[Rfam]
RNA sequence: CUGAGAAGCCAGUGAUGGUUUAAGUCAGAAUGUCUGAACCUGUUUGAAGCGUCUCGGUGAUGCAUAUUCUGUGUGCCUCUGAGGUUAGUCUCUGAGU
Number, nucleotide and partner (000 for none) at each position: 001c000002u000003g000004a091005g090006a089007a086008g085009c084010c083011a000012g000013u000014g000015a000016u000017g000018g000019u000020u000021u000022a000023a000024g000025u000026c000027a000028g000029a000030a000031u000032g000033u000034c000035u000036g000037a000038a000039c000040c000041u000042g000043u000044u000045u000046g000047a000048a000049g000050c000051g000052u000053c000054u000055c000056g000057g000058u000059g000060a000061u000062g000063c000064a000065u000066a000067u000068u000069c000070u000071g000072u000073g000074u000075g000076c000077c000078u000079c000080u000081g000082a000083g010084g009085u008086u007087a000088g000089u006090c005091u004092c000093u000094g000095a000096g000097u000
RNA: Small nucleolar RNA SNORD91 family